[Rfam]
RNA sequence: CGAGUCGGUCGGGCGGCCGCGGCUGAGGGAACGGGCACGCUUGGUGCCGCCGCCCUUCGCCGAGGAAAGUCCGGACUCCGGAGAGCAGGGCGGUUGCUAACGGCAACCCGGGGCAACCCGCGGGACAGUGCCACAGAAAACAGACCGCCGGUGGGCCGCACUUCGCGAGAAGUGCACCGCCGGUAAGGGUGAAACGGUGCGGUAAGAGCGCACCAGCGCGCCGGGUGACCGGCGUGGCUCGGUAAACCCCGCCCGGAGCAAGGUCGAAGGCCGCACUCGCGAGAGUGCGACUGCGCAGGCGUUCGAGGGCUGCUCGCCCGAGCCUGCGGGUGGACCGCUCGAGGCACCCGGCAACGGUGUGUCCAGAUGGAUGGUCGCCACCCGGUGGGUAACCACCGGGGACAGGAUCCGGCUUACAGACCGACUCGUUCG
Numbered sequence: 001c002g003a004g005u006c007g008g009u010c011g012g013g014c015g016g017c018c019g020c021g022g023c024u025g026a027g028g029g030a031a032c033g034g035g036c037a038c039g040c041u042u043g044g045u046g047c048c049g050c051c052g053c054c055c056u057u058c059g060c061c062g063a064g065g066a067a068a069g070u071c072c073g074g075a076c077u078c079c080g081g082a083g084a085g086c087a088g089g090g091c092g093g094u095u096g097c098u099a100a101c102g103g104c105a106a107c108c109c110g111g112g113g114c115a116a117c118c119c120g121c122g123g124g125a126c127a128g129u130g131c132c133a134c135a136g137a138a139a140a141c142a143g144a145c146c147g148c149c150g151g152u153g154g155g156c157c158g159c160a161c162u163u164c165g166c167g168a169g170a171a172g173u174g175c176a177c178c179g180c181c182g183g184u185a186a187g188g189g190u191g192a193a194a195c196g197g198u199g200c201g202g203u204a205a206g207a208g209c210g211c212a213c214c215a216g217c218g219c220g221c222c223g224g225g226u227g228a229c230c231g232g233c234g235u236g237g238c239u240c241g242g243u244a245a246a247c248c249c250c251g252c253c254c255g256g257a258g259c260a261a262g263g264u265c266g267a268a269g270g271c272c273g274c275a276c277u278c279g280c281g282a283g284a285g286u287g288c289g290a291c292u293g294c295g296c297a298g299g300c301g302u303u304c305g306a307g308g309g310c311u312g313c314u315c316g317c318c319c320g321a322g323c324c325u326g327c328g329g330g331u332g333g334a335c336c337g338c339u340c341g342a343g344g345c346a347c348c349c350g351g352c353a354a355c356g357g358u359g360u361g362u363c364c365a366g367a368u369g370g371a372u373g374g375u376c377g378c379c380a381c382c383c384g385g386u387g388g389g390u391a392a393c394c395a396c397c398g399g400g401g402a403c404a405g406g407a408u409c410c411g412g413c414u415u416a417c418a419g420a421c422c423g424a425c426u427c428g429u430u431c432g
Stems, first nucleotide, its partner, number of pairs: 001428010011417001012379007020062004025057004067415003071412005076258004083315004088254005093107005108122001109120004123249002128247002130243003145188002147184008196214006216238001217236008262336004295327006307319004343363005348357003

The record is a 432-nucleotide RNA sequence from Nocardia aurantiaca, which matches "Bacterial RNase P class A" in Rfam. Lineage of the source: Bacteria > Actinomycetota > Actinomycetes > Nocardiaceae > Nocardia. Rfam links the family to the GO terms tRNA processing, ribonuclease P activity and dimeric ribonuclease P complex.